[Rfam]
RNA sequence: AACAUGCUCCCUUAGAUCCAUCUUUGUUUGAUUUCUCUUUUGUUGAGUUCUGCUUAUGCCUUUGGGUUUGAGCAGUUCCAGCUAAGAGGAAUCAGCAACUUUAUGGUUGCACCAUCAAAGAUGCUUGAGUCAUUGGCAUGUGAGAAUAAUAUACCUUCAUUCUAGUCUUGUGUUCUGAUAGAAAUGGCAUAAUAAUACGUGUCAUUUUCUACUAUCAGGAUUUGACUGGAGUGUGGACAUG
Numbered sequence: 001a002a003c004a005u006g007c008u009c010c011c012u013u014a015g016a017u018c019c020a021u022c023u024u025u026g027u028u029u030g031a032u033u034u035c036u037c038u039u040u041u042g043u044u045g046a047g048u049u050c051u052g053c054u055u056a057u058g059c060c061u062u063u064g065g066g067u068u069u070g071a072g073c074a075g076u077u078c079c080a081g082c083u084a085a086g087a088g089g090a091a092u093c094a095g096c097a098a099c100u101u102u103a104u105g106g107u108u109g110c111a112c113c114a115u116c117a118a119a120g121a122u123g124c125u126u127g128a129g130u131c132a133u134u135g136g137c138a139u140g141u142g143a144g145a146a147u148a149a150u151a152u153a154c155c156u157u158c159a160u161u162c163u164a165g166u167c168u169u170g171u172g173u174u175c176u177g178a179u180a181g182a183a184a185u186g187g188c189a190u191a192a193u194a195a196u197a198c199g200u201g202u203c204a205u206u207u208u209c210u211a212c213u214a215u216c217a218g219g220a221u222u223u224g225a226c227u228g229g230a231g232u233g234u235g236g237a238c239a240u241g
Stems, first nucleotide, its partner, number of pairs: 002141007011129005019123008029094005036087004042082004047078001050075004056069001058067003095110006155236002158233002162229001164227004174219008185211003189207001191202001193201001
Dot-bracket structure: .(((((((..(((((...((((((((..(((((..((((..((((.(..((((..(.(((....))).)..))))..))))).))))..)))))((((((....)))))).....)))))))).))))).....))))))).............((.((..(.((((......((((((((...(((.(.(.(.......))....).)))))))))))....)))).)..)).)).....
RNA: Small nucleolar RNA SNORA53